Source information
A member of the RNA family "Small nucleolar RNA Z199" from Triticum aestivum, 82 nucleotides long. NCBI's taxonomy places the organism under Eukaryota, Triticodae, Triticeae, Triticinae, Triticum. Rfam's curators write: snoZ199 is a C/D box small nucleolar RNA, which acts as a methylation guide RNA for sites on 18S and 25S rRNA. Rice snoZ199 is reported to be homologous to Arabidopsis snoR13. Pairs were carried over by alignment from the consensus structure, which was predicted with PFOLD.

RNA sequence: GGUUCAAGUGAUGAUGAGAAACAACAACAACAACAUGACAGGAGUUACCUUCCUGUGAUUCGUAGUUUAAAGUUGGAUGAUU
Numbered sequence: 001g002g003u004u005c006a007a008g009u010g011a012u013g014a015u016g017a018g019a020a021a022c023a024a025c026a027a028c029a030a031c032a033a034c035a036u037g038a039c040a041g042g043a044g045u046u047a048c049c050u051u052c053c054u055g056u057g058a059u060u061c062g063u064a065g066u067u068u069a070a071a072g073u074u075g076g077a078u079g080a081u082u
Stems, first nucleotide, its partner, number of pairs: 001082002004080003040054005